[Rfam]
RNA sequence: UGCGAUGAGUCGAGUAUGAUCCGAUAUUUCUUUGAAAUAUUCUGCGCAAGCGGCUCGGGAUCAAAAAGAUAGCAGGGCAUCAUCAGGCUAGACCGACCUACCGGAUCGUAGGGGAUGUUUACGUCCGCUGUGUUGUGGAGCAC
Number, nucleotide and partner (000 for none) at each position: 001u000002g000003c000004g000005a000006u000007g000008a000009g000010u000011c000012g000013a000014g000015u000016a000017u000018g062019a061020u060021c059022c058023g041024a040025u039026a038027u037028u036029u035030c034031u000032u000033u000034g030035a029036a028037a027038u026039a025040u024041u023042c053043u052044g051045c050046g000047c000048a000049a000050g045051c044052g043053g042054c000055u000056c000057g000058g022059g021060a020061u019062c018063a000064a000065a000066a000067a000068g000069a000070u000071a000072g000073c000074a000075g000076g000077g118078c117079a116080u115081c114082a000083u000084c000085a000086g000087g000088c000089u000090a000091g000092a000093c000094c000095g000096a000097c112098c111099u110100a109101c108102c000103g000104g000105a000106u000107c000108g101109u100110a099111g098112g097113g000114g081115a080116u079117g078118u077119u000120u000121a000122c000123g000124u000125c000126c000127g000128c000129u000130g143131u142132g141133u140134u139135g000136u000137g000138g000139a134140g133141c132142a131143c130
The record is a 143-nucleotide RNA sequence from Lactobacillus selangorensis, which matches "Enterococcus sRNA 68 (Lacto-3 RNA)" in Rfam. For this family Rfam cites "Whole-genome mapping of 5' RNA ends in bacteria by tagged sequencing: a comprehensive view in Enterococcus faecalis" (Innocenti et al., RNA, 2015). Taxonomically the source falls in Lactobacillus (Bacteria, Bacillati, Bacillota, Lactobacillaceae).